[Rfam]
The family of this 71-nucleotide RNA sequence from Culex quinquefasciatus is "mir-3 microRNA precursor family". Rfam's curators put it in the seed alignment. Taxonomically the source falls in Culex pipiens complex (Eukaryota, Metazoa, Hexapoda, Panorpida). Gene Ontology terms of the family: RISC complex and miRNA-mediated post-transcriptional gene silencing. The literature on the family includes a 2003 paper in Dev Cell by Aravin et al., "The small RNA profile during Drosophila melanogaster development".
RNA sequence: UUUAUGCGUCAAACUCGGCUCAGUUUGGUGAACUUUGAUUUGACAUCACUGGGCAUAGUUUGUCGCAUAAU
Numbered sequence: 001u002u003u004a005u006g007c008g009u010c011a012a013a014c015u016c017g018g019c020u021c022a023g024u025u026u027g028g029u030g031a032a033c034u035u036u037g038a039u040u041u042g043a044c045a046u047c048a049c050u051g052g053g054c055a056u057a058g059u060u061u062g063u064c065g066c067a068u069a070a071u
Stems, first nucleotide, its partner, number of pairs: 005067004010062005018054002021051004